[Rfam]
RNA sequence: AACCCCCCACGCGACGUCACCUCGCCGAAUCCCCCAGGGCCGGAAGGCAGCAAGGGCACGUGAGCUCUGAUGGGUGCGUGGGGGGCCUCU
Number, nucleotide and partner (000 for none) at each position: 001a000002a000003c085004c084005c083006c082007c081008c080009a079010c078011g077012c074013g000014a000015c072016g071017u070018c069019a068020c000021c064022u063023c062024g061025c060026c000027g000028a000029a000030u000031c056032c055033c054034c000035c000036a000037g000038g000039g048040c047041c046042g000043g000044a000045a000046g041047g040048c039049a000050g000051c000052a000053a000054g033055g032056g031057c000058a000059c000060g025061u024062g023063a022064g021065c000066u000067c000068u019069g018070a017071u016072g015073g000074g012075u000076g000077c011078g010079u009080g008081g007082g006083g005084g004085g003086c000087c000088u000089c000090u000
Shown here is a 90-nucleotide sequence from Nocardioides zhouii, a member of the family "Bacterial small signal recognition particle RNA". Rfam classes the family as a non-coding RNA gene.